Shown here is a 66-nucleotide sequence from Rhynchophorus ferrugineus, a member of the family "mir-2 microRNA precursor family". It scores 48 bits against the family's covariance model. The source organism's lineage runs through Eukaryota, Opisthokonta, Neuropteroidea, Polyphaga and Rhynchophorus.
[Rfam]
RNA sequence: AUGAUCGUCAAUUUGGCUGUGAAUUCUGGCUUCGAUAUGAUAUCACAGCCACUUUGAUGAGUUAGG
Numbered sequence: 001a002u003g004a005u006c007g008u009c010a011a012u013u014u015g016g017c018u019g020u021g022a023a024u025u026c027u028g029g030c031u032u033c034g035a036u037a038u039g040a041u042a043u044c045a046c047a048g049c050c051a052c053u054u055u056g057a058u059g060a061g062u063u064a065g066g
Stems, first nucleotide, its partner, number of pairs: 005060007014051009025042001027040001